This 88-nucleotide sequence from Candidatus Gallionella acididurans belongs to the Rfam family "Burkholderia RNA 7 (anti-hemB)". From the family's description: This RNA motif was identified by computational search in b-proteobacteria Burkholderia. Co-purified with Hfq, expression confirmed by Northern blot. For this family Rfam cites "Identification of 22 candidate structured RNAs in bacteria using the CMfinder comparative genomics pipeline" (Weinberg et al., Nucleic Acids Res, 2007). Pairs were carried over by alignment from the consensus structure, which is taken from published work. The organism belongs to Gallionella, within Bacteria.
RNA sequence: UCCACGUUUCUCCUCCCUGAGCGUGCGUCUUGACACUUGUUGAGACUUUUGCCCCCGGCCUACCUCCCCUUGGCUGGGGGUAUUUUUU
Numbered sequence: 001u002c003c004a005c006g007u008u009u010c011u012c013c014u015c016c017c018u019g020a021g022c023g024u025g026c027g028u029c030u031u032g033a034c035a036c037u038u039g040u041u042g043a044g045a046c047u048u049u050u051g052c053c054c055c056c057g058g059c060c061u062a063c064c065u066c067c068c069c070u071u072g073g074c075u076g077g078g079g080g081u082a083u084u085u086u087u088u
Stems, first nucleotide, its partner, number of pairs: 003025006027046007053079008